About this RNA: The record is a 178-nucleotide RNA from Medicago truncatula, which matches "MIR2619 microRNA precursor family" in Rfam. Pairs were carried over by alignment from the consensus structure, which was predicted with RNAalifold. The organism belongs to Medicago, within Eukaryota. It scores 118 bits against the family's covariance model.
[Rfam]
RNA sequence: AAACUGCCCCCUAAGUUUUGCAACUGUAGCAGUUUUGGCCCCCAAAGCCAAUUUUUGGUAAAAAAGAAUAUAAAAAAAACACGUGGCACCUCACUUAGGGUGCAAUGUCAGCGUAGACUGAGUCAAAAUUAGCAUUGAGGGCCAAAACUGCCACAUAUGCAAAACUUAGGGGCAGUUU
Dot-bracket structure: ((.(((((...(((((((((((..(((.(((((((((((((.(((...................................((.(.(((((........))))).).))..........................))).))))))))))))).)))..)))))))))))..))))).))